[Rfam]
RNA sequence: AGAUAUCGCCGGGGUCACCUCCUCCUCCCAGACCCCCGCGAUAAAAGGCCGGCACCUCCUCCUCCCAAGCCGGCCUUUACAAAUAGCACCCGCCGCACCUCCUCCCGCGGCGGGUGUUGUUU
Numbered sequence: 001a002g003a004u005a006u007c008g009c010c011g012g013g014g015u016c017a018c019c020u021c022c023u024c025c026u027c028c029c030a031g032a033c034c035c036c037c038g039c040g041a042u043a044a045a046a047g048g049c050c051g052g053c054a055c056c057u058c059c060u061c062c063u064c065c066c067a068a069g070c071c072g073g074c075c076u077u078u079a080c081a082a083a084u085a086g087c088a089c090c091c092g093c094c095g096c097a098c099c100u101c102c103u104c105c106c107g108c109g110g111c112g113g114g115u116g117u118u119g120u121u122u
Base pairs, nucleotide, nucleotide: 007040008039009038011036012035013034014033015032016031045077046076047075048074049073050072051071052070053069086117087116088115089114090113091112092111093110094109095108096107